[Rfam]
This 134-nucleotide sequence from Brugia malayi belongs to the Rfam family "Nematode snoRNA ceN39". The organism belongs to Brugia, within Eukaryota. Rfam classes the family as an H/ACA-box small nucleolar RNA.
RNA sequence: GUGGCAUAUAGGAACCAUGUGUGAUGUGUAUGCCACAUGUGGGCCGAUAAAAUGCCAAAAUGAAAUCAUUGUAUAAAGGUCGCAGGUAGAGGGUCAGAAGUCCUCUUCAGGCAUUACCCAAGCAGUGUACAGUC
Numbered sequence: 001g002u003g004g005c006a007u008a009u010a011g012g013a014a015c016c017a018u019g020u021g022u023g024a025u026g027u028g029u030a031u032g033c034c035a036c037a038u039g040u041g042g043g044c045c046g047a048u049a050a051a052a053u054g055c056c057a058a059a060a061u062g063a064a065a066u067c068a069u070u071g072u073a074u075a076a077a078g079g080u081c082g083c084a085g086g087u088a089g090a091g092g093g094u095c096a097g098a099a100g101u102c103c104u105c106u107u108c109a110g111g112c113a114u115u116a117c118c119c120a121a122g123c124a125g126u127g128u129a130c131a132g133u134c
Stems, first nucleotide, its partner, number of pairs: 003056005011045002015042009024031002068126005078118003082112002086108001088106002091104003